[Rfam]
Source information: mir-277 microRNA precursor family: a 109-nucleotide RNA sequence from Leptobrachium leishanense. Taxonomically the source falls in Leptobrachium (Eukaryota, Eumetazoa, Euteleostomi, Dipnotetrapodomorpha).
RNA sequence: AAUAUUGUGCCUUUGGUGGCAGCAAGUGCCUUCACACCGUAAAUAACCCCUCUGUGGUAUUGUGGAAUUUACGGUGUGAAGGCACUUGCUGCCACCAAAGGCACAAUAU
Numbered sequence: 001a002a003u004a005u006u007g008u009g010c011c012u013u014u015g016g017u018g019g020c021a022g023c024a025a026g027u028g029c030c031u032u033c034a035c036a037c038c039g040u041a042a043a044u045a046a047c048c049c050c051u052c053u054g055u056g057g058u059a060u061u062g063u064g065g066a067a068u069u070u071a072c073g074g075u076g077u078g079a080a081g082g083c084a085c086u087u088g089c090u091g092c093c094a095c096c097a098a099a100g101g102c103a104c105a106a107u108a109u
Stems, first nucleotide, its partner, number of pairs: 008103004015096009026085001028083017